[Rfam]
The family of this 99-nucleotide RNA sequence from Corynebacterium imitans is "Bacterial small signal recognition particle RNA". Rfam describes the family as follows. The signal recognition particle (SRP) is a universally conserved ribonucleoprotein involved in the co-translational targeting of proteins to membranes.
RNA sequence: GGCAGGAUCCCACGCGGUGCUUAUCUUGUGAACUCCCCCAGGGCGGGAACGCAGCAAGGGUCAGCGAGCUCUGGCAGGUGCGUGGGGUCCCCUUAGUUU
Numbered sequence: 001g002g003c004a005g006g007a008u009c010c011c012a013c014g015c016g017g018u019g020c021u022u023a024u025c026u027u028g029u030g031a032a033c034u035c036c037c038c039c040a041g042g043g044c045g046g047g048a049a050c051g052c053a054g055c056a057a058g059g060g061u062c063a064g065c066g067a068g069c070u071c072u073g074g075c076a077g078g079u080g081c082g083u084g085g086g087g088u089c090c091c092c093u094u095a096g097u098u099u
Stems, first nucleotide, its partner, number of pairs: 004093003009086006015078001018076004025068005035060003043052003